[Rfam]
RNA sequence: AUGUGUGUAGGAGAAGUUUUACUGAAACAGUGGAAACAAGGAAACACUUGGUUUAGUAAAACUAUAUA
Numbered sequence: 001a002u003g004u005g006u007g008u009a010g011g012a013g014a015a016g017u018u019u020u021a022c023u024g025a026a027a028c029a030g031u032g033g034a035a036a037c038a039a040g041g042a043a044a045c046a047c048u049u050g051g052u053u054u055a056g057u058a059a060a061a062c063u064a065u066a067u068a
Stems, first nucleotide, its partner, number of pairs: 015063005022056002028050002030047003
RNA: Cyano-1 RNA
Organism: Prochlorococcus marinus